[Rfam]
Nucleotides: 060
Stems, first nucleotide, its partner, number of pairs: 011049002014046004025039002028036002050060004
Number, partner (000 for none) and nucleotide at each position: 001000u002000u003000u004000c005000g006000u007000g008000g009000a010000a011049c012048a013000c014046c015045g016044g017043c018000c019000a020000a021000g022000a023000c024000c025039g026038c027000c028036a029035c030000g031000u032000c033000c034000u035029g036028u037000a038026g039025c040000a041000a042000c043017g044016c045015c046014g047000a048012u049011g050060g051059c052058u053057c054000c055000u056000g057053g058052a059051g060050c